[Rfam]
RNA: MIR807 microRNA precursor family
RNA sequence: UACCACACUAUCAAUGAAUGGAUUCACCCACGAGAUGACGUUGUUUCACCUAAGAUGAGGACAUGUCAUCCUAUUACCAGCCAUCGCACGAAAUUAAUAGGAUGCCACGUUCUCAUCCUUGAUGGAACAACCACGUUAUCUCAUGGGUGAAUCCAUUCAUCGAUAGUGUGGUU
Numbered sequence: 001u002a003c004c005a006c007a008c009u010a011u012c013a014a015u016g017a018a019u020g021g022a023u024u025c026a027c028c029c030a031c032g033a034g035a036u037g038a039c040g041u042u043g044u045u046u047c048a049c050c051u052a053a054g055a056u057g058a059g060g061a062c063a064u065g066u067c068a069u070c071c072u073a074u075u076a077c078c079a080g081c082c083a084u085c086g087c088a089c090g091a092a093a094u095u096a097a098u099a100g101g102a103u104g105c106c107a108c109g110u111u112c113u114c115a116u117c118c119u120u121g122a123u124g125g126a127a128c129a130a131c132c133a134c135g136u137u138a139u140c141u142c143a144u145g146g147g148u149g150a151a152u153c154c155a156u157u158c159a160u161c162g163a164u165a166g167u168g169u170g171g172u173u
Stems, first nucleotide, its partner, number of pairs: 002172006009165004014160002017157003021153008030144001032142002035139005041130005048123001052119001054117002060111003067104010083094002